[Rfam]
RNA sequence: GCAAUAGACGAUGCAUAUGAGCGGAUGCGGUGACACCCUUGUGAAUGGGGGUGCGGCCAAUGACAGUAUUUGAAGCGAUGACACUUAUGAUUAGCUUUGGAGUGCUUAUCUUGAUGCUGUCAGACAGAAAGAAAUAAUCCGCCUCAUAUGCUUCUGCAGGAGCUGAGACGGAUCGUAGUAAAAUACGCAAUGUUGAUGAAGCACUGCAUCCGCUCUACGCGGAUAUUGCCAUCCCGUCAGUGUUCACAGCACUGGCG
Numbered sequence: 001g002c003a004a005u006a007g008a009c010g011a012u013g014c015a016u017a018u019g020a021g022c023g024g025a026u027g028c029g030g031u032g033a034c035a036c037c038c039u040u041g042u043g044a045a046u047g048g049g050g051g052u053g054c055g056g057c058c059a060a061u062g063a064c065a066g067u068a069u070u071u072g073a074a075g076c077g078a079u080g081a082c083a084c085u086u087a088u089g090a091u092u093a094g095c096u097u098u099g100g101a102g103u104g105c106u107u108a109u110c111u112u113g114a115u116g117c118u119g120u121c122a123g124a125c126a127g128a129a130a131g132a133a134a135u136a137a138u139c140c141g142c143c144u145c146a147u148a149u150g151c152u153u154c155u156g157c158a159g160g161a162g163c164u165g166a167g168a169c170g171g172a173u174c175g176u177a178g179u180a181a182a183a184u185a186c187g188c189a190a191u192g193u194u195g196a197u198g199a200a201g202c203a204c205u206g207c208a209u210c211c212g213c214u215c216u217a218c219g220c221g222g223a224u225a226u227u228g229c230c231a232u233c234c235c236g237u238c239a240g241u242g243u244u245c246a247c248a249g250c251a252c253u254g255g256c257g
Base pairs, nucleotide, nucleotide: 001229002228003227004226005225011209012208013207014150015149016148017147018146019145020144021143023139024138026136030054031053032052034051036049037048038047062121063120064119065118066117067116068115076089077088100112101111102110210222211221212220213219235257236256237255238254239253240252241251242250243249244248
Rfam assigns this 257-nucleotide RNA sequence from Sporolactobacillus inulinus to the family "BsrG". Its family is annotated with autolysis and toxin activity in the Gene Ontology. Rfam describes the family as follows. bsrE, bsrG and bsrH pair through intermolecular interactions with antisense sRNAs. They form type I toxin/antitoxin system that includes an mRNA encoding for a short, toxic peptide (bsrE, bsrG and bsrH) and an antitoxin that is comprised of an antisense RNA. bsrG encodes a 39-amino-acid toxin, and the 180 nucleotide antisense sRNA called SR4 acts as the antitoxin (they overlap by 123 nucleotides). SR4 interaction with the 3'UTR of bsrG RNA promotes bsrG degradation and inhibits its translation. BsrG interferes with cell envelope biosynthesis, causes membrane invaginations and delocalisation of the cell wall synthesis and initiates autolysis. bsrE RNA encodes 30 amino-acid toxin peptide. Its antitoxin gene, SR5 overlaps by 112 nucleotides at the 3' end of bsrE. SR5 also overlaps bsrG from nucleotide 163 to 52 (Rfam overlap check). The antitoxin SR5 promotes bsrE degradation but unlike SR4 it does not directly inhibits toxin mRNA translation. The organism belongs to Sporolactobacillus, within Bacteria. Pairs were carried over by alignment from the consensus structure, which was predicted with WAR.